This 163-nucleotide RNA sequence from Heliophilum fasciatum belongs to the Rfam family "glmS glucosamine-6-phosphate activated ribozyme aptamer". A search with the family's covariance model found it, with a score of 109 bits. Rfam links the family to the GO terms catalytic activity and regulation of gene expression. The source organism's lineage runs through Bacteria, Bacillati, Clostridia, Eubacteriales and Heliophilum.
RNA sequence: AAAAUAAUGCAAGCGCCAGAACCGGUGCGGGUGAAAGUAAACCGGUUGACGAGGCGGGGGUUUAUCGAAGAUUUCGGCGGAUGCCCCCUGGCUGCUCACGGCCUACAGUUCUGUAACAAAUCCCGGGAGUAAUCGCGGGGACAAAGGCGGAACGGUGAGUGUA
Numbered sequence: 001a002a003a004a005u006a007a008u009g010c011a012a013g014c015g016c017c018a019g020a021a022c023c024g025g026u027g028c029g030g031g032u033g034a035a036a037g038u039a040a041a042c043c044g045g046u047u048g049a050c051g052a053g054g055c056g057g058g059g060g061u062u063u064a065u066c067g068a069a070g071a072u073u074u075c076g077g078c079g080g081a082u083g084c085c086c087c088c089u090g091g092c093u094g095c096u097c098a099c100g101g102c103c104u105a106c107a108g109u110u111c112u113g114u115a116a117c118a119a120a121u122c123c124c125g126g127g128a129g130u131a132a133u134c135g136c137g138g139g140g141a142c143a144a145a146g147g148c149g150g151a152a153c154g155g156u157g158a159g160u161g162u163a
Stems, first nucleotide, its partner, number of pairs: 020047007029038001056088005065077004090103005108153007122139004127134002
Dot-bracket structure: ...................(((((((..(........)..)))))))........(((((....((((.....))))......))))).(((((....)))))....(((((((.......((((.((....)).)))).......)))))))..........